[Rfam]
Nucleotides: 049
Base pairs, nucleotide, nucleotide: 001020002019003018004017005016006015007014008013036049037048038047039046040045
Number, partner (000 for none) and nucleotide at each position: 001020c002019c003018g004017u005016c006015g007014g008013g009000a010000c011000g012000a013008c014007c015006c016005g017004g018003c019002g020001g021000c022000a023000u024000g025000g026000a027000a028000c029000g030000a031000a032000a033000c034000g035000u036049c037048c038047a039046g040045g041000a042000c043000g044000g045040c046039c047038u048037g049036g
Shown here is a 49-nucleotide sequence from Halopseudomonas xinjiangensis, a member of the family "Guanidine-II riboswitch aptamer (mini-ykkC)".
Rfam 15.1 lists 1,589 matches to the family in 1,229 species.
A search with the family's covariance model found it, with a score of 42 bits.
Pairs were carried over by alignment from the consensus structure, which is taken from published work.
The organism belongs to Halopseudomonas, within Bacteria.
Rfam's curators write: Simpler in structure and has fewer highly conserved nucleotide positions than the ykkC-yxkD leader.